small nucleolar RNA snoR143: a 170-nucleotide RNA sequence from Solanum commersonii.
The family's RNA type in Rfam is H/ACA-box small nucleolar RNA.
Rfam links the family to the GO terms nucleolus and RNA processing.
[Rfam]
RNA sequence: UUGCACUUCGCAUUUCUAUAAGCUUCGCUAAAUUCUCAAAAUAGUGCAGUUUACAGCGAUUAGUGCAUAAAGGAAAAGCUGAAUUUAUCAGCGGCGGCCAGACAACCGUUGAGAUGAAUCCACAGAUUGGUUCCGUUUUUGCUCCUGUCUACUAAUUUCAUCUCACAUUU
Numbered sequence: 001u002u003g004c005a006c007u008u009c010g011c012a013u014u015u016c017u018a019u020a021a022g023c024u025u026c027g028c029u030a031a032a033u034u035c036u037c038a039a040a041a042u043a044g045u046g047c048a049g050u051u052u053a054c055a056g057c058g059a060u061u062a063g064u065g066c067a068u069a070a071a072g073g074a075a076a077a078g079c080u081g082a083a084u085u086u087a088u089c090a091g092c093g094g095c096g097g098c099c100a101g102a103c104a105a106c107c108g109u110u111g112a113g114a115u116g117a118a119u120c121c122a123c124a125g126a127u128u129g130g131u132u133c134c135g136u137u138u139u140u141g142c143u144c145c146u147g148u149c150u151a152c153u154a155a156u157u158u159c160a161u162c163u164c165a166c167a168u169u170u
Base pairs, nucleotide, nucleotide: 002067003066004065005064006063011058016056017055019053020052021051022050023049024048026046027045028044029043030042111164112163113162114161115160116159117158118157128147129146130145